[Rfam]
RNA: Small nucleolar RNA U61
RNA sequence: GUGCUGUGAUGAAAAAAAUCUUGUGUCGGAGGCUUUUUGUCGCUGAUGGUUUACACAACCCUCUAAGAAGUUCUGAGCAC
Numbered sequence: 001g002u003g004c005u006g007u008g009a010u011g012a013a014a015a016a017a018a019u020c021u022u023g024u025g026u027c028g029g030a031g032g033c034u035u036u037u038u039g040u041c042g043c044u045g046a047u048g049g050u051u052u053a054c055a056c057a058a059c060c061c062u063c064u065a066a067g068a069a070g071u072u073c074u075g076a077g078c079a080c
Stems, first nucleotide, its partner, number of pairs: 001080004